[Rfam]
RNA sequence: ACAGAAUUCCCCGGAGAAUGAACUCCGGGAAGAUAGAAGAAAAAAAUGAAGAUUAAGUCGUAGGAAUGAGCGGAAAUAUUUCAA
Numbered sequence: 001a002c003a004g005a006a007u008u009c010c011c012c013g014g015a016g017a018a019u020g021a022a023c024u025c026c027g028g029g030a031a032g033a034u035a036g037a038a039g040a041a042a043a044a045a046a047u048g049a050a051g052a053u054u055a056a057g058u059c060g061u062a063g064g065a066a067u068g069a070g071c072g073g074a075a076a077u078a079u080u081u082c083a084a
Base pairs, nucleotide, nucleotide: 007031008030010029011028012027013026014025015024016023068081069080070079
Shown here is an 84-nucleotide sequence from Campynema lineare, a member of the family "Plastid-rpl20 3UTR RNA". A reference for the family is Richter et al. (2023), "Retrograde signaling in plants: A critical review focusing on the GUN pathway and beyond", Plant Commun.